[Rfam]
RNA sequence: CAGAAAUGGGGGGUUUCUUCCAGCCCAAAACAGUCCCAUGAUCUUCGCCUUUCUGUUGAUCUUACUCUCUGUUUUGGACUGAAGGGAGCUCCUAAUUCUU
Numbered sequence: 001c002a003g004a005a006a007u008g009g010g011g012g013g014u015u016u017c018u019u020c021c022a023g024c025c026c027a028a029a030a031c032a033g034u035c036c037c038a039u040g041a042u043c044u045u046c047g048c049c050u051u052u053c054u055g056u057u058g059a060u061c062u063u064a065c066u067c068u069c070u071g072u073u074u075u076g077g078a079c080u081g082a083a084g085g086g087a088g089c090u091c092c093u094a095a096u097u098c099u100u
Base pairs, nucleotide, nucleotide: 007094008093009092010091012090013089014088015087016086017085018084019083022080023079025077026076027075028074029073030072031071032070
MIR319 microRNA precursor family: a 100-nucleotide RNA sequence from Tetracentron sinense. Taxonomically the source falls in Tetracentron (Eukaryota, Viridiplantae, Spermatophyta, Trochodendraceae). The family has 11 seed sequences and 168 matches in Rfam 15.1.